Small nucleolar RNA SNORA65: a 128-nucleotide RNA sequence from Bagarius yarrelli. NCBI's taxonomy places the organism under Eukaryota, Actinopteri, Ostariophysi, Siluroidei, Bagarius. Rfam's curators write: U65 belongs to the H/ACA class of snoRNAs which are thought to guide the sites of modification of uridines to pseudouridines. Pairs were carried over by alignment from the consensus structure, which was predicted with RNAalifold. Rfam 15.1 lists 1,089 matches to the family in 619 species.

RNA sequence: CCCGCCACUAUGCUAGUCUGUGUCAGUGACUUGGUAUAAUCCAGUGGUGGCUGAGAGAAUCUCCAGCUCUAGGAAGCAGAGCUGCUCAGUCUGAUGAGUAACUCUGUGCCAAAAGACCUGGAACAAAU
Numbered sequence: 001c002c003c004g005c006c007a008c009u010a011u012g013c014u015a016g017u018c019u020g021u022g023u024c025a026g027u028g029a030c031u032u033g034g035u036a037u038a039a040u041c042c043a044g045u046g047g048u049g050g051c052u053g054a055g056a057g058a059a060u061c062u063c064c065a066g067c068u069c070u071a072g073g074a075a076g077c078a079g080a081g082c083u084g085c086u087c088a089g090u091c092u093g094a095u096g097a098g099u100a101a102c103u104c105u106g107u108g109c110c111a112a113a114a115g116a117c118c119u120g121g122a123a124c125a126a127a128u
Stems, first nucleotide, its partner, number of pairs: 005047005018034003023028001063121004068115001070113001072110002077106005085098003